Source information: mraW RNA: a 99-nucleotide RNA sequence from Arenivirga flava. A search with the family's covariance model found it, with a score of 60 bits.
RNA sequence: UUCUGAUCCCUGAUCGUCGACCCCCAGCCGACCGCCCUGGCGCACCUUCCCCGGUGCCAGGUCGCCGGAUGGGGAUCGAUGAACAGGGGUCCAGCCGGA
Numbered sequence: 001u002u003c004u005g006a007u008c009c010c011u012g013a014u015c016g017u018c019g020a021c022c023c024c025c026a027g028c029c030g031a032c033c034g035c036c037c038u039g040g041c042g043c044a045c046c047u048u049c050c051c052c053g054g055u056g057c058c059a060g061g062u063c064g065c066c067g068g069a070u071g072g073g074g075a076u077c078g079a080u081g082a083a084c085a086g087g088g089g090u091c092c093a094g095c096c097g098g099a
Base pairs, nucleotide, nucleotide: 010086011085012084014082015081016080019077020076022074023073024072025071026070028068029067030066033064034063036061037060038059039058040057041056042055043054